The family of this 388-nucleotide sequence from Glycomyces terrestris is "Bacterial RNase P class A". The family's RNA type in Rfam is ribozyme. The organism belongs to Glycomyces, within Bacteria. Rfam describes the family as follows. Ribonuclease P (RNase P) is a ubiquitous endoribonuclease, found in archaea, bacteria and eukarya as well as chloroplasts and mitochondria. The family's consensus secondary structure is taken from published work.
RNA sequence: CGAGACGGCCAGGCGGUCGCGGCAGUGACGGGAGACCACUACUGUCGAGGAACGUCCGGGCUCCAGAGGGCAGGGUGGUUGCUAACGGCAACCCGGGGCGACCCGCGGGACAGUGCCACAGAAAGCAGACCGCCAGCGUUCGCGCUGGUAAGGGUGAAACGGUGGUGUAAGAGACCACCAGCGCCGCCGGUGACGGCGGCGGCUCGGUAAACCCCACCCGGAGCAAGGUCAAGAGGAGCCACGAGGCUCUGCGCGAAGGCCACACAGGGCGGCCCGUCCGAGCCCGCAAGGGCGCCUUCGCGGGUAGACCGCUUGAGCGCGCCGGCGACGGCGCGCCUAGAUGGAUGACCGUCCUAGACAGAACCCGGCGUAUCGGCCGUCUCGUUCC
Numbered sequence: 001c002g003a004g005a006c007g008g009c010c011a012g013g014c015g016g017u018c019g020c021g022g023c024a025g026u027g028a029c030g031g032g033a034g035a036c037c038a039c040u041a042c043u044g045u046c047g048a049g050g051a052a053c054g055u056c057c058g059g060g061c062u063c064c065a066g067a068g069g070g071c072a073g074g075g076u077g078g079u080u081g082c083u084a085a086c087g088g089c090a091a092c093c094c095g096g097g098g099c100g101a102c103c104c105g106c107g108g109g110a111c112a113g114u115g116c117c118a119c120a121g122a123a124a125g126c127a128g129a130c131c132g133c134c135a136g137c138g139u140u141c142g143c144g145c146u147g148g149u150a151a152g153g154g155u156g157a158a159a160c161g162g163u164g165g166u167g168u169a170a171g172a173g174a175c176c177a178c179c180a181g182c183g184c185c186g187c188c189g190g191u192g193a194c195g196g197c198g199g200c201g202g203c204u205c206g207g208u209a210a211a212c213c214c215c216a217c218c219c220g221g222a223g224c225a226a227g228g229u230c231a232a233g234a235g236g237a238g239c240c241a242c243g244a245g246g247c248u249c250u251g252c253g254c255g256a257a258g259g260c261c262a263c264a265c266a267g268g269g270c271g272g273c274c275c276g277u278c279c280g281a282g283c284c285c286g287c288a289a290g291g292g293c294g295c296c297u298u299c300g301c302g303g304g305u306a307g308a309c310c311g312c313u314u315g316a317g318c319g320c321g322c323c324g325g326c327g328a329c330g331g332c333g334c335g336c337c338u339a340g341a342u343g344g345a346u347g348a349c350c351g352u353c354c355u356a357g358a359c360a361g362a363a364c365c366c367g368g369c370g371u372a373u374c375g376g377c378c379g380u381c382u383c384g385u386u387c388c
Stems, first nucleotide, its partner, number of pairs: 001384010011373001012353007020047008052371003056368005061223004070287002073219005078092005093107001094105004108214002113212002115208003130153002132149007161179006181203001182201008227310004282293004317336008